[Rfam]
RNA sequence: GUCUAUCUUCGGGGCAGGGUGAAAUUCCCGACCGGCGGUGAUAAGCGUUUAGUUUUUUCUUGCUUUAAGCCCGCGAGCCUGAUAGUGCUGUUCAGUUGGAUAUUAACUGCAGUACGCUAUAAUCGGGCAGGAUUUGGUGCGAAUCCAAAGCCGACAGUAAAGUCUGGAUGGGAGAAGAUGGAG
Numbered sequence: 001g002u003c004u005a006u007c008u009u010c011g012g013g014g015c016a017g018g019g020u021g022a023a024a025u026u027c028c029c030g031a032c033c034g035g036c037g038g039u040g041a042u043a044a045g046c047g048u049u050u051a052g053u054u055u056u057u058u059c060u061u062g063c064u065u066u067a068a069g070c071c072c073g074c075g076a077g078c079c080u081g082a083u084a085g086u087g088c089u090g091u092u093c094a095g096u097u098g099g100a101u102a103u104u105a106a107c108u109g110c111a112g113u114a115c116g117c118u119a120u121a122a123u124c125g126g127g128c129a130g131g132a133u134u135u136g137g138u139g140c141g142a143a144u145c146c147a148a149a150g151c152c153g154a155c156a157g158u159a160a161a162g163u164c165u166g167g168a169u170g171g172g173a174g175a176a177g178a179u180g181g182a183g
Stems, first nucleotide, its partner, number of pairs: 003181008017029003031163002033153002035074004069151002079127001133149005155166003
The family of this 183-nucleotide sequence from Cytobacillus horneckiae is "FMN riboswitch aptamer (RFN element)".
The base pairs follow the family's consensus structure, which is taken from published work.
Rfam's curators write: The RFN element is a highly conserved domain that is found frequently in the 5'-untranslated regions of prokaryotic mRNAs that encode for flavin mononucleotide (FMN) biosynthesis and transport proteins.